[Rfam]
RNA sequence: GCAAUCUCAGAACACUCUGAGGGACACGCGUAAUAAGCCUGAUUGUGAUAUUACGUAGGGUAGGUAUCAAACGACCUUCGUUUGAUAGAUGGGAAUAAGAUGCCAAGAUGGCAUUGAGAAAGGCACCCAACA
Numbered sequence: 001g002c003a004a005u006c007u008c009a010g011a012a013c014a015c016u017c018u019g020a021g022g023g024a025c026a027c028g029c030g031u032a033a034u035a036a037g038c039c040u041g042a043u044u045g046u047g048a049u050a051u052u053a054c055g056u057a058g059g060g061u062a063g064g065u066a067u068c069a070a071a072c073g074a075c076c077u078u079c080g081u082u083u084g085a086u087a088g089a090u091g092g093g094a095a096u097a098a099g100a101u102g103c104c105a106a107g108a109u110g111g112c113a114u115u116g117a118g119a120a121a122g123g124c125a126c127c128c129a130a131c132a
Base pairs, nucleotide, nucleotide: 006021007020008019009018010017011016028056029055030054031053032052033051034050035049037046038045065087066086067085068084069083070082071081072080073079074078101113102112103111104110105109

DABA-DC-AT RNA: a 132-nucleotide RNA sequence from Vibrio breoganii.
NCBI's taxonomy places the organism under Bacteria, Pseudomonadota, Gammaproteobacteria, Vibrio, Vibrio breoganii.